[Rfam]
RNA sequence: UCAUCAGGUGGUAUAAUCCUUACCUGUUCCUCCUUUUGGAGGGUAGAUUAGAGCAUGAUCAUUGGAGUUUGCAUGUUACGUGAUUAGCAUCUCUGUGUAAUCAGGAUUUGUAAUGACCUGAUUGUGCCAAUUGGAU
Numbered sequence: 001u002c003a004u005c006a007g008g009u010g011g012u013a014u015a016a017u018c019c020u021u022a023c024c025u026g027u028u029c030c031u032c033c034u035u036u037u038g039g040a041g042g043g044u045a046g047a048u049u050a051g052a053g054c055a056u057g058a059u060c061a062u063u064g065g066a067g068u069u070u071g072c073a074u075g076u077u078a079c080g081u082g083a084u085u086a087g088c089a090u091c092u093c094u095g096u097g098u099a100a101u102c103a104g105g106a107u108u109u110g111u112a113a114u115g116a117c118c119u120g121a122u123u124g125u126g127c128c129a130a131u132u133g134g135a136u
Stems, first nucleotide, its partner, number of pairs: 024046003028043006075093001078090001080088001081086001097125009
The family of this 136-nucleotide RNA from Carlito syrichta is "U8 small nucleolar RNA". The source organism's lineage runs through Eukaryota, Deuterostomia, Gnathostomata, Dipnotetrapodomorpha and Carlito. For this family Rfam cites "A small nucleolar RNA functions in rRNA processing in Caenorhabditis elegans" (Hokii et al., Nucleic Acids Res, 2010). By type it is a C/D-box small nucleolar RNA.